[Rfam]
RNA sequence: GGUCAAUGAUGAUAACUUGAAAGGCUUGUUUCUCAUAACAUUUGCAGUGGCCGCGUAAGAGCUUUCGCUUUCGUCAAGCUCGAGAGCUAAUGCUGCUUCAAUCCUUCCUCGGAUGUCUGAGGCC
Numbered sequence: 001g002g003u004c005a006a007u008g009a010u011g012a013u014a015a016c017u018u019g020a021a022a023g024g025c026u027u028g029u030u031u032c033u034c035a036u037a038a039c040a041u042u043u044g045c046a047g048u049g050g051c052c053g054c055g056u057a058a059g060a061g062c063u064u065u066c067g068c069u070u071u072c073g074u075c076a077a078g079c080u081c082g083a084g085a086g087c088u089a090a091u092g093c094u095g096c097u098u099c100a101a102u103c104c105u106u107c108c109u110c111g112g113a114u115g116u117c118u119g120a121g122g123c124c
Base pairs, nucleotide, nucleotide: 001124002123003122004121061087062086063085064084065083066082
Small nucleolar RNA SNORD14: a 124-nucleotide sequence from Hibiscus syriacus. Rfam describes the family as follows. U14 small nucleolar RNA (U14 snoRNA) is required for early cleavages of eukaryotic precursor rRNAs. In yeasts, this molecule possess a stem-loop region (known as the Y-domain) which is essential for function. The family's consensus secondary structure was predicted with PFOLD. By type it is a C/D-box small nucleolar RNA. On this family, see Samarsky et al., Nucleic Acids Res 1996: "An essential domain in Saccharomyces cerevisiae U14 snoRNA is absent in vertebrates, but conserved in other yeasts".